Shown here is a 178-nucleotide RNA sequence from Oceanobacillus piezotolerans, a member of the family "Lysine riboswitch aptamer".
RNA sequence: CGGUGAGGUAGAGGCGCAAAGAAUAUAAGUAAUCAGUCGGAGUAUGACAUCGUUGAGGAUUGACGAAAGGAUUGUUUGCCGAAGUGUAAUAAGGGUCAAACUUAUUAUUGCUGGGAUGCUUCCUAAACAAGGAGCAGACUGUCAUGCAAUGCUAUUCGCAUGGAGGACUACUGAUCGA
Numbered sequence: 001c002g003g004u005g006a007g008g009u010a011g012a013g014g015c016g017c018a019a020a021g022a023a024u025a026u027a028a029g030u031a032a033u034c035a036g037u038c039g040g041a042g043u044a045u046g047a048c049a050u051c052g053u054u055g056a057g058g059a060u061u062g063a064c065g066a067a068a069g070g071a072u073u074g075u076u077u078g079c080c081g082a083a084g085u086g087u088a089a090u091a092a093g094g095g096u097c098a099a100a101c102u103u104a105u106u107a108u109u110g111c112u113g114g115g116a117u118g119c120u121u122c123c124u125a126a127a128c129a130a131g132g133a134g135c136a137g138a139c140u141g142u143c144a145u146g147c148a149a150u151g152c153u154a155u156u157c158g159c160a161u162g163g164a165g166g167a168c169u170a171c172u173g174a175u176c177g178a
Stems, first nucleotide, its partner, number of pairs: 007172005016079005022073003033063006083112004087107007113140002117136006142163006